[Rfam]
RNA sequence: GGGGACCUUCGGGGCCCUUCAUCUAACGGACCUAUGGUCCAAAGCAACGGAAGACAGAGA
Numbered sequence: 001g002g003g004g005a006c007c008u009u010c011g012g013g014g015c016c017c018u019u020c021a022u023c024u025a026a027c028g029g030a031c032c033u034a035u036g037g038u039c040c041a042a043a044g045c046a047a048c049g050g051a052a053g054a055c056a057g058a059g060a
Stems, first nucleotide, its partner, number of pairs: 001018004006014003028040005
Annotation
The family of this 60-nucleotide RNA is "L2-Alphaproteobacteria ribosomal protein leader". On this family, see Eckert and Weinberg, BMC Microbiol 2020: "Discovery of 20 novel ribosomal leader candidates in bacteria and archaea". Rfam's curators put it in the seed alignment.